[Rfam]
The record is an 84-nucleotide RNA sequence from Lachnospiraceae bacterium 5_1_57FAA, which matches "ZMP/ZTP riboswitch aptamer (pfl RNA motif)" in Rfam. The family's consensus secondary structure is taken from published work. A reference for the family is Tran et al. (2020), "Parallel Discovery Strategies Provide a Basis for Riboswitch Ligand Design", Cell Chem Biol. Rfam links the family to the GO terms regulation of purine nucleotide biosynthetic process and one-carbon metabolic process.
RNA sequence: AAAGGUCUUCAUUACUGACGGAUAAUGUGGAGUACCACAAGGGAAUGAAGAUCUGUAAUCAAGCCGACCGUCUGGGCAGCAUCG
Numbered sequence: 001a002a003a004g005g006u007c008u009u010c011a012u013u014a015c016u017g018a019c020g021g022a023u024a025a026u027g028u029g030g031a032g033u034a035c036c037a038c039a040a041g042g043g044a045a046u047g048a049a050g051a052u053c054u055g056u057a058a059u060c061a062a063g064c065c066g067a068c069c070g071u072c073u074g075g076g077c078a079g080c081a082u083c084g
Stems, first nucleotide, its partner, number of pairs: 003054010015042002017072005027038004063077003